RNA: Selenocysteine transfer RNA
RNA sequence: GGGGUUGGAUGGGUAACUGGUGUUCCCCUGAGUCUUCAAAACUCUGAGGGGCCUGCGUGCCAGGCUCGGUGGGUUCGAUUCCCACACAGUCCC
Numbered sequence: 001g002g003g004g005u006u007g008g009a010u011g012g013g014u015a016a017c018u019g020g021u022g023u024u025c026c027c028c029u030g031a032g033u034c035u036u037c038a039a040a041a042c043u044c045u046g047a048g049g050g051g052c053c054u055g056c057g058u059g060c061c062a063g064g065c066u067c068g069g070u071g072g073g074u075u076c077g078a079u080u081c082c083c084a085c086a087c088a089g090u091c092c093c
Stems, first nucleotide, its partner, number of pairs: 001093007008085001011027003015024003028046001030044004049067005070084004